[Rfam]
Nucleotides: 117
Base pairs, nucleotide, nucleotide: 016032017031018030019029020028078117080115082113089112090111092109093108095106096105
Number, partner (000 for none) and nucleotide at each position: 001000c002000g003000c004000u005000u006000a007000u008000u009000u010000c011000a012000c013000c014000a015000u016032g017031g018030c019029g020028g021000a022000g023000c024000u025000c026000g027000a028020c029019c030018g031017c032016c033000g034000g035000u036000c037000g038000a039000a040000g041000a042000c043000a044000u045000g046000a047000u048000c049000g050000c051000g052000u053000u054000c055000a056000u057000c058000g059000a060000u061000g062000a063000u064000c065000a066000u067000c068000g069000c070000a071000g072000u073000g074000c075000g076000c077000a078117u079000a080115g081000g082113g083000u084000c085000g086000a087000g088000c089112c090111g091000a092109u093108c094000u095106g096105c097000a098000a099000g100000u101000u102000g103000c104000g105096g106095c107000c108093g109092a110000u111090c112089g113082c114000a115080c116000c117078g